[Rfam]
RNA sequence: GGUGCAAUGAUGUGAUGAAAACACAUAAGUGUUUUUUGGGCAGUGGACAUUACCAUCAGGUUUUGCCGUGAGCCUUUUUCAUAAACGACUUCUCCUUCCACUGAUCACU
Numbered sequence: 001g002g003u004g005c006a007a008u009g010a011u012g013u014g015a016u017g018a019a020a021a022c023a024c025a026u027a028a029g030u031g032u033u034u035u036u037u038g039g040g041c042a043g044u045g046g047a048c049a050u051u052a053c054c055a056u057c058a059g060g061u062u063u064u065g066c067c068g069u070g071a072g073c074c075u076u077u078u079u080c081a082u083a084a085a086c087g088a089c090u091u092c093u094c095c096u097u098c099c100a101c102u103g104a105u106c107a108c109u
Stems, first nucleotide, its partner, number of pairs: 001109004
Rfam assigns this 109-nucleotide RNA sequence from Trifolium medium to the family "Small nucleolar RNA Z152/R70/R12/". NCBI's taxonomy places the organism under Eukaryota, Viridiplantae, Fabaceae, Trifolieae, Trifolium. On this family, see Barneche et al., J Mol Biol 2001: "Identification of 66 box C/D snoRNAs in Arabidopsis thaliana: extensive gene duplications generated multiple isoforms predicting new ribosomal RNA 2'-O-methylation sites". Rfam classes the family as a C/D-box small nucleolar RNA. A search with the family's covariance model found it, with a score of 93 bits.